[Rfam]
RNA sequence: UUCGUUAGAACACUACCUAAGGCUUUCGCUGCAAUGGCGAAGGCACAGAAGGUUCGCCACGCCGGCAGCGGACCUUCGCAGGCAGAUACGUCUGCCAGGCCUUGCCACAAGGCCAACGGGACAUAACAGUCAAC
Dot-bracket structure: .....................((.((((((.....)))))).))......(((((((..........)))))))......((((((....)))))).((((((.....))))))....................
Numbered sequence: 001u002u003c004g005u006u007a008g009a010a011c012a013c014u015a016c017c018u019a020a021g022g023c024u025u026u027c028g029c030u031g032c033a034a035u036g037g038c039g040a041a042g043g044c045a046c047a048g049a050a051g052g053u054u055c056g057c058c059a060c061g062c063c064g065g066c067a068g069c070g071g072a073c074c075u076u077c078g079c080a081g082g083c084a085g086a087u088a089c090g091u092c093u094g095c096c097a098g099g100c101c102u103u104g105c106c107a108c109a110a111g112g113c114c115a116a117c118g119g120g121a122c123a124u125a126a127c128a129g130u131c132a133a134c
Stems, first nucleotide, its partner, number of pairs: 022044002025041006051074007081096006098114006